[Rfam]
RNA sequence: CUUCUUCAACAAAACACAGAUCUGUGUCCUGCAAUCCCGUUCCAUGAAGCUAUCUGUUCUCUCGGGAGCAUUUAGUCUGCGUGUGUUUCGGUCGUAUUGCUGGACAGUUCGACGACCCAUGGAGCCAUCCACCUGGUACAAACCGAGUUUCCUCAUGAUGUCAAUUUCCGGUCGACAGAUCUCAGAUGAAGUUUCAGCGCUGGGAUUACACACUCUGCCUUGAGCUUCCUUCGGGUGAGCUCGGUGAGAUGGCCUGGGUCUGCUGGGGGCGUCAUAUUCCAUCUCUCUUUGCCGAUGGCCGUCGGCUGGUGAGGUUAGGGAAAAACCAUGACAGCCAACAUAC
Numbered sequence: 001c002u003u004c005u006u007c008a009a010c011a012a013a014a015c016a017c018a019g020a021u022c023u024g025u026g027u028c029c030u031g032c033a034a035u036c037c038c039g040u041u042c043c044a045u046g047a048a049g050c051u052a053u054c055u056g057u058u059c060u061c062u063c064g065g066g067a068g069c070a071u072u073u074a075g076u077c078u079g080c081g082u083g084u085g086u087u088u089c090g091g092u093c094g095u096a097u098u099g100c101u102g103g104a105c106a107g108u109u110c111g112a113c114g115a116c117c118c119a120u121g122g123a124g125c126c127a128u129c130c131a132c133c134u135g136g137u138a139c140a141a142a143c144c145g146a147g148u149u150u151c152c153u154c155a156u157g158a159u160g161u162c163a164a165u166u167u168c169c170g171g172u173c174g175a176c177a178g179a180u181c182u183c184a185g186a187u188g189a190a191g192u193u194u195c196a197g198c199g200c201u202g203g204g205a206u207u208a209c210a211c212a213c214u215c216u217g218c219c220u221u222g223a224g225c226u227u228c229c230u231u232c233g234g235g236u237g238a239g240c241u242c243g244g245u246g247a248g249a250u251g252g253c254c255u256g257g258g259u260c261u262g263c264u265g266g267g268g269g270c271g272u273c274a275u276a277u278u279c280c281a282u283c284u285c286u287c288u289u290u291g292c293c294g295a296u297g298g299c300c301g302u303c304g305g306c307u308g309g310u311g312a313g314g315u316u317a318g319g320g321a322a323a324a325a326c327c328a329u330g331a332c333a334g335c336c337a338a339c340a341u342a343c
Stems, first nucleotide, its partner, number of pairs: 018182008026105004031100001033098003036094001037091003042085001044082003048078002055070001057068004113174005120163003124159001126157003194262001199259001200257005216246004222242006228235002268336003271332005284321005291315003297307004

The record is a 343-nucleotide sequence from Microsporum canis, which matches "A. fumigatus sRNA Afu_309" in Rfam. The match comes from Rfam's covariance-model search (234 bits). Rfam classes the family as a small RNA. Rfam 15.1 lists 663 matches to the family in 646 species.